[Rfam]
RNA sequence: UCUGCACCCAAACCCAAAGAUCACGUCUCCUCAGUGGUGUGAUCCUGUCUGGAGUGCAAACACCAACCUGAUCCUUGUCGCCUUUCUCUGCUGCUGCUGUGCCUCUGAAAGUGAAUCCAAGGUUCAACACGU
Numbered sequence: 001u002c003u004g005c006a007c008c009c010a011a012a013c014c015c016a017a018a019g020a021u022c023a024c025g026u027c028u029c030c031u032c033a034g035u036g037g038u039g040u041g042a043u044c045c046u047g048u049c050u051g052g053a054g055u056g057c058a059a060a061c062a063c064c065a066a067c068c069u070g071a072u073c074c075u076u077g078u079c080g081c082c083u084u085u086c087u088c089u090g091c092u093g094c095u096g097c098u099g100u101g102c103c104u105c106u107g108a109a110a111g112u113g114a115a116u117c118c119a120a121g122g123u124u125c126a127a128c129a130c131g132u
Base pairs, nucleotide, nucleotide: 003058004057005056006055007054009052019044020043021042022041023040024039025038026037027036070125071124073122074121075120076119082111083110084109085108086107090102091101